This 120-nucleotide sequence from Trifolium pratense belongs to the Rfam family "MIR1509 microRNA precursor family".
Rfam links the family to the GO terms miRNA-mediated post-transcriptional gene silencing and RISC complex.
Lineage of the source: Eukaryota > Streptophytina > Tracheophyta > Fabales > Trifolium.
Rfam 15.1 lists 42 matches to the family in 23 species.
The family's consensus secondary structure was predicted with RNAalifold.
[Rfam]
RNA sequence: UGAUCCAUUGAUUUUUUCUAAUCAAAGAUAUCACGGUAGAGGAAAUAUGAAAUAAGAUUCCUCUCAUUUCUUUCUUCUUUCUCCACCGUGUUUCUUUGAUUAGAGAAAUUUGUUGGAUCA
Number, nucleotide and partner (000 for none) at each position: 001u120002g119003a118004u117005c116006c115007a114008u000009u000010g000011a110012u000013u108014u000015u000016u105017u104018c103019u102020a101021a100022u099023c098024a097025a096026a095027g094028a093029u000030a091031u000032c090033a089034c088035g087036g086037u085038a000039g083040a082041g081042g000043a000044a000045a000046u000047a000048u000049g000050a000051a000052a000053u000054a000055a000056g000057a000058u000059u000060c000061c000062u000063c000064u000065c000066a000067u000068u000069u000070c000071u000072u000073u000074c000075u000076u000077c000078u000079u000080u000081c041082u040083c039084c000085a037086c036087c035088g034089u033090g032091u030092u000093u028094c027095u026096u025097u024098g023099a022100u021101u020102a019103g018104a017105g016106a000107a000108a013109u000110u011111u000112g000113u000114u007115g006116g005117a004118u003119c002120a001